ALIL pseudoknot: a 114-nucleotide RNA from Modestobacter caceresii. On this family, see Mazauric et al., J Biol Chem 2008: "Apical loop-internal loop RNA pseudoknots: a new type of stimulator of -1 translational frameshifting in bacteria". It is annotated as a cis-regulatory element. The source organism's lineage runs through Bacteria, Bacillati, Actinomycetes, Geodermatophilales and Modestobacter.
[Rfam]
RNA sequence: GGCUUUCUUCGCGGCGGAGCUCGACCGCCCACAGCGGUGAUCGUCGAGUUCAUCGACGCCCACCGGGACGAGCACGGGGUCGAGCCGAUCUGCGCUGAGCUGCAGAUCGCCCCG
Numbered sequence: 001g002g003c004u005u006u007c008u009u010c011g012c013g014g015c016g017g018a019g020c021u022c023g024a025c026c027g028c029c030c031a032c033a034g035c036g037g038u039g040a041u042c043g044u045c046g047a048g049u050u051c052a053u054c055g056a057c058g059c060c061c062a063c064c065g066g067g068a069c070g071a072g073c074a075c076g077g078g079g080u081c082g083a084g085c086c087g088a089u090c091u092g093c094g095c096u097g098a099g100c101u102g103c104a105g106a107u108c109g110c111c112c113c114g
Stems, first nucleotide, its partner, number of pairs: 013029005075114005086109002089106006